A member of the RNA family "Fluoride riboswitch aptamer (crcB RNA motif)" from Castellaniella defragrans, 70 nucleotides long. The match comes from Rfam's covariance-model search (47 bits). Lineage of the source: Bacteria > Pseudomonadati > Pseudomonadota > Burkholderiales > Castellaniella defragrans.
RNA sequence: CCCUCAUCUGGAGAUGGCAUUCCUCCACGAAACCGCCGCGCGCGCCGCGGCUGAUGAUGCCUACGGCCCC
Numbered sequence: 001c002c003c004u005c006a007u008c009u010g011g012a013g014a015u016g017g018c019a020u021u022c023c024u025c026c027a028c029g030a031a032a033c034c035g036c037c038g039c040g041c042g043c044g045c046c047g048c049g050g051c052u053g054a055u056g057a058u059g060c061c062u063a064c065g066g067c068c069c070c
Stems, first nucleotide, its partner, number of pairs: 010026004016061006035051006